This 67-nucleotide RNA from Sporosarcina limicola belongs to the Rfam family "Bacillaceae-1 RNA". It scores 48 bits against the family's covariance model. By type it is a small RNA. Lineage of the source: Bacteria > Bacillota > Caryophanales > Caryophanaceae > Sporosarcina.
[Rfam]
RNA sequence: AUAUAAGGAACGCAACCGAAGAUCGCGACGUCGUGUCGUAAAGGUUUCAUGACCUACAUCUUAUAGG
Numbered sequence: 001a002u003a004u005a006a007g008g009a010a011c012g013c014a015a016c017c018g019a020a021g022a023u024c025g026c027g028a029c030g031u032c033g034u035g036u037c038g039u040a041a042a043g044g045u046u047u048c049a050u051g052a053c054c055u056a057c058a059u060c061u062u063a064u065a066g067g
Stems, first nucleotide, its partner, number of pairs: 012048001014046004025039005053067004